[Rfam]
RNA sequence: UAAAAAUGAAUACAGAAUACUUAUAUAGGUUCAUAAUCGGUUGAACGUCUCUACCAGCCGCCGGAACGGCUGACUAUAAGUAUCGCGGCGGACGGU
Numbered sequence: 001u002a003a004a005a006a007u008g009a010a011u012a013c014a015g016a017a018u019a020c021u022u023a024u025a026u027a028g029g030u031u032c033a034u035a036a037u038c039g040g041u042u043g044a045a046c047g048u049c050u051c052u053a054c055c056a057g058c059c060g061c062c063g064g065a066a067c068g069g070c071u072g073a074c075u076a077u078a079a080g081u082a083u084c085g086c087g088g089c090g091g092a093c094g095g096u
Stems, first nucleotide, its partner, number of pairs: 018082008029046005055072006

Shown here is a 96-nucleotide RNA from Lachnoclostridium sp. An169, a member of the family "Purine riboswitch aptamer". Lineage of the source: Bacteria > Bacillati > Lachnospirales > Lachnospiraceae > Lachnoclostridium. The family's consensus secondary structure is taken from published work.